[Rfam]
This 100-nucleotide RNA sequence from Oxalobacteraceae bacterium CAVE-383 belongs to the Rfam family "ZMP/ZTP riboswitch aptamer (pfl RNA motif)". The source organism's lineage runs through Bacteria, Pseudomonadati, Betaproteobacteria, Burkholderiales and Oxalobacteraceae. The match comes from Rfam's covariance-model search (59 bits).
RNA sequence: UUCGUCUCACGUGACUGGCGAAAAACCGGGUUUGCCCGGUCAAGAUGGAUAUCCAUCGGGAAGCGUGAGAUCUUAUUUGCCGUGCGCCUGGGUAGCCUGA
Numbered sequence: 001u002u003c004g005u006c007u008c009a010c011g012u013g014a015c016u017g018g019c020g021a022a023a024a025a026c027c028g029g030g031u032u033u034g035c036c037c038g039g040u041c042a043a044g045a046u047g048g049a050u051a052u053c054c055a056u057c058g059g060g061a062a063g064c065g066u067g068a069g070a071u072c073u074u075a076u077u078u079g080c081c082g083u084g085c086g087c088c089u090g091g092g093u094a095g096c097c098u099g100a
Stems, first nucleotide, its partner, number of pairs: 004071009015060002017088004045056004077095005